The record is a 46-nucleotide RNA sequence from Novipirellula maiorica, which matches "Acido-Lenti-1 RNA" in Rfam.
NCBI's taxonomy places the organism under Bacteria, Planctomycetia, Pirellulaceae, Novipirellula, Novipirellula maiorica.
It scores 46 bits against the family's covariance model.
RNA sequence: CCACGGGCUUACGCCCGUGGCUACAUCCUGCCGUCGCGUUGCGACU
Numbered sequence: 001c002c003a004c005g006g007g008c009u010u011a012c013g014c015c016c017g018u019g020g021c022u023a024c025a026u027c028c029u030g031c032c033g034u035c036g037c038g039u040u041g042c043g044a045c046u
Stems, first nucleotide, its partner, number of pairs: 001020008033045005